[Rfam]
RNA sequence: UAGUUGAUUCAUGAUCUGCCUAAGACUCAGGUGGCGAAAGCCUUAAUUUAUGCCUGCCGAGGAAAUUAUUAUCUAUAUGAUAGUAUUUGACUCUCUGUGUCGGGUGGACACGGGGAUUUUUUUAUCCCUAA
Numbered sequence: 001u002a003g004u005u006g007a008u009u010c011a012u013g014a015u016c017u018g019c020c021u022a023a024g025a026c027u028c029a030g031g032u033g034g035c036g037a038a039a040g041c042c043u044u045a046a047u048u049u050a051u052g053c054c055u056g057c058c059g060a061g062g063a064a065a066u067u068a069u070u071a072u073c074u075a076u077a078u079g080a081u082a083g084u085a086u087u088u089g090a091c092u093c094u095c096u097g098u099g100u101c102g103g104g105u106g107g108a109c110a111c112g113g114g115g116a117u118u119u120u121u122u123u124a125u126c127c128c129u130a131a
Stems, first nucleotide, its partner, number of pairs: 028056005033042003092116010
Dot-bracket structure: ...........................((((((((....))).........)))))...................................((((((((((.....))))))))))...............

Ribosomal protein L10 leader: a 131-nucleotide RNA sequence from Secundilactobacillus malefermentans. This family is a putative r-protein leader autoregulatory structure found in B. subtilis and other low-GC Gram-positive bacteria. It is located in the 5' untranslated regions of mRNAs encoding ribosomal proteins L10 and L12 (rplJ-rplL). The match comes from Rfam's covariance-model search (76 bits). Rfam links the family to the GO term regulation of gene expression. Rfam classes the family as a cis-regulatory leader.